Rfam assigns this 87-nucleotide RNA sequence from Amaricoccus sp. HAR-UPW-R2A-40 to the family "Rhodo-rpoB RNA". The source organism's lineage runs through Bacteria, Pseudomonadota, Alphaproteobacteria, Rhodobacterales and Amaricoccus. It scores 43 bits against the family's covariance model. The family's RNA type in Rfam is cis-regulatory element.
Nucleotides: 087
Base pairs, nucleotide, nucleotide: 001042002041004039005038010030011029012028013027014026015025016024057087058086059085060084063081064080065079066078067077
Number, partner (000 for none) and nucleotide at each position: 001042g002041u003000u004039c005038c006000g007000g008000g009000u010030g011029c012028g013027c014026g015025a016024u017000c018000u019000g020000g021000g022000a023000a024016a025015u026014c027013g028012c029011g030010c031000a032000a033000g034000c035000a036000u037000u038005g039004g040000c041002a042001c043000c044000c045000a046000c047000g048000u049000c050000c051000c052000a053000a054000g055000g056000c057087c058086g059085c060084g061000a062000u063081c064080u065079c066078c067077g068000u069000u070000u071000c072000c073000c074000c075000g076000c077067c078066g079065g080064a081063g082000g083000c084060c085059g086058c087057g